[Rfam]
RNA: Glycine riboswitch aptamer
Organism: Citricoccus sp. SGAir0253
RNA sequence: ACGCCCAGCGCGGGAGAGUGCCGGCGCCGAGGACCCCGGGCACGCCGCCCGGGACCGCGGUCCGGCCGCCGAAGGAGCAAGUUCUCCCCGAGAAUCUCUCAGGCCCCCGUACCGCGAUGGGAAC
Numbered sequence: 001a002c003g004c005c006c007a008g009c010g011c012g013g014g015a016g017a018g019u020g021c022c023g024g025c026g027c028c029g030a031g032g033a034c035c036c037c038g039g040g041c042a043c044g045c046c047g048c049c050c051g052g053g054a055c056c057g058c059g060g061u062c063c064g065g066c067c068g069c070c071g072a073a074g075g076a077g078c079a080a081g082u083u084c085u086c087c088c089c090g091a092g093a094a095u096c097u098c099u100c101a102g103g104c105c106c107c108c109g110u111a112c113c114g115c116g117a118u119g120g121g122a123a124c
Stems, first nucleotide, its partner, number of pairs: 006119002009116005020066004068104003071100002075098003082090001